[Rfam]
RNA: Small nucleolar RNA SNORD69
Organism: Ornithorhynchus anatinus
RNA sequence: AACAUAAGCCUAUGAUGAAAGUUGGAACUGACAUACCAUGCUGAGUUUGUUCAAUCCAACCCUGAGCUUCAUGUU
Dot-bracket structure: (((((((((........................................................)))).)))))
Numbered sequence: 001a002a003c004a005u006a007a008g009c010c011u012a013u014g015a016u017g018a019a020a021g022u023u024g025g026a027a028c029u030g031a032c033a034u035a036c037c038a039u040g041c042u043g044a045g046u047u048u049g050u051u052c053a054a055u056c057c058a059a060c061c062c063u064g065a066g067c068u069u070c071a072u073g074u075u
Stems, first nucleotide, its partner, number of pairs: 001075005006069004